[Rfam]
Source information
A member of the RNA family "S15-Flavobacteria ribosomal protein leader", 68 nucleotides long. The literature on the family includes a 2020 paper in BMC Microbiol by Eckert and Weinberg, "Discovery of 20 novel ribosomal leader candidates in bacteria and archaea". The family's consensus secondary structure is taken from published work. Rfam's curators put it in the seed alignment. The family is grouped with related families in Rfam's "Ribosomal Protein S15 Leader clan".

RNA sequence: UAUAUUUGACACUUGAUUACGAUAGACGUAAUUAUUCGCAUAAAAAUUAUUUAAAUAAUAUUGGAAUG
Numbered sequence: 001u002a003u004a005u006u007u008g009a010c011a012c013u014u015g016a017u018u019a020c021g022a023u024a025g026a027c028g029u030a031a032u033u034a035u036u037c038g039c040a041u042a043a044a045a046a047u048u049a050u051u052u053a054a055a056u057a058a059u060a061u062u063g064g065a066a067u068g
Stems, first nucleotide, its partner, number of pairs: 014034006